[Rfam]
RNA sequence: UUAGGAUCGGUGAGUUGAGUAGAAAUUGCUUUAUCUAUAUGUAUUCUGUAACUUUUUACAGGAAUUGAAGAUAAUCAGAACUUACUGAGAUCUUCU
Numbered sequence: 001u002u003a004g005g006a007u008c009g010g011u012g013a014g015u016u017g018a019g020u021a022g023a024a025a026u027u028g029c030u031u032u033a034u035c036u037a038u039a040u041g042u043a044u045u046c047u048g049u050a051a052c053u054u055u056u057u058a059c060a061g062g063a064a065u066u067g068a069a070g071a072u073a074a075u076c077a078g079a080a081c082u083u084a085c086u087g088a089g090a091u092c093u094u095c096u
Stems, first nucleotide, its partner, number of pairs: 003094005

The record is a 96-nucleotide sequence from Trifolium medium, which matches "Small nucleolar RNA snoR27" in Rfam. A search with the family's covariance model found it, with a score of 43 bits. A reference for the family is Brown et al. (2001), "Multiple snoRNA gene clusters from Arabidopsis", RNA. NCBI's taxonomy places the organism under Eukaryota, Streptophyta, Magnoliopsida, Hologalegina, Trifolium. Its Rfam clan is "snR68 clan".